[Rfam]
RNA sequence: AUAUACCAGCGAUAUUGGUAUAUUAUAGUCAAUGUGUUUCAGGAGUCGAUUUUCAAAGGUACUUGUUUUAUAGUUUUAUGAAAUAACUUCCUUGGAAUCAGUUCAACUAGAUACAUUAAAAUUUAUGAUGCGCAAAAAGCGCAAGGAGGUUUCAUAUAUUAUGAAACAAGGUACUGUUAAAUGGUUCAACGCUGAUAAAGGUUAUGGCUUCAUUACUACUGACGAUGGUGACGUAUUUGUUCACUUCUCAGCUAUCAACAAAGACGGCUUCAAGUCAUUAGACGAAGGCCAACAUGUAACCCUUGACGUUGAAGACAGCGACCGUGGCCCACAAGCUGCCAACGUUACUGUUGUUGACGACUAAUUAAAAAAUUAAAAAGUUUUUUAAAAACCGACGAGAGAUCGUCGGUUUUUUUG
Numbered sequence: 001a002u003a004u005a006c007c008a009g010c011g012a013u014a015u016u017g018g019u020a021u022a023u024u025a026u027a028g029u030c031a032a033u034g035u036g037u038u039u040c041a042g043g044a045g046u047c048g049a050u051u052u053u054c055a056a057a058g059g060u061a062c063u064u065g066u067u068u069u070a071u072a073g074u075u076u077u078a079u080g081a082a083a084u085a086a087c088u089u090c091c092u093u094g095g096a097a098u099c100a101g102u103u104c105a106a107c108u109a110g111a112u113a114c115a116u117u118a119a120a121a122u123u124u125a126u127g128a129u130g131c132g133c134a135a136a137a138a139g140c141g142c143a144a145g146g147a148g149g150u151u152u153c154a155u156a157u158a159u160u161a162u163g164a165a166a167c168a169a170g171g172u173a174c175u176g177u178u179a180a181a182u183g184g185u186u187c188a189a190c191g192c193u194g195a196u197a198a199a200g201g202u203u204a205u206g207g208c209u210u211c212a213u214u215a216c217u218a219c220u221g222a223c224g225a226u227g228g229u230g231a232c233g234u235a236u237u238u239g240u241u242c243a244c245u246u247c248u249c250a251g252c253u254a255u256c257a258a259c260a261a262a263g264a265c266g267g268c269u270u271c272a273a274g275u276c277a278u279u280a281g282a283c284g285a286a287g288g289c290c291a292a293c294a295u296g297u298a299a300c301c302c303u304u305g306a307c308g309u310u311g312a313a314g315a316c317a318g319c320g321a322c323c324g325u326g327g328c329c330c331a332c333a334a335g336c337u338g339c340c341a342a343c344g345u346u347a348c349u350g351u352u353g354u355u356g357a358c359g360a361c362u363a364a365u366u367a368a369a370a371a372a373u374u375a376a377a378a379a380g381u382u383u384u385u386u387a388a389a390a391a392c393c394g395a396c397g398a399g400a401g402a403u404c405g406u407c408g409g410u411u412u413u414u415u416u417g
Base pairs, nucleotide, nucleotide: 004020005019006018007017008016009015027220028219031217033215034214042210044209045208046207047206049196050195051194054191058187059186061185062184063183064168065167066166067165068164069163070162077156078155079154080153081152082151083150085103086102087101088100223311224310225309226308227307230238231237241299243297244296246294251290252288253287255282256281258279263276264275265274318329320328322326332356333355334354336350338348359382360381361380363374364373365372366371387414388413389412390411391410392409393408394407395406396405397404398403

A member of the RNA family "cspA thermoregulator" from Lentilactobacillus hilgardii, 417 nucleotides long. The family's consensus secondary structure is taken from published work. The match comes from Rfam's covariance-model search (100 bits). Taxonomically the source falls in Lentilactobacillus hilgardii (Bacteria, Bacilli, Lactobacillaceae, Lentilactobacillus). Rfam classes the family as an RNA thermoregulator.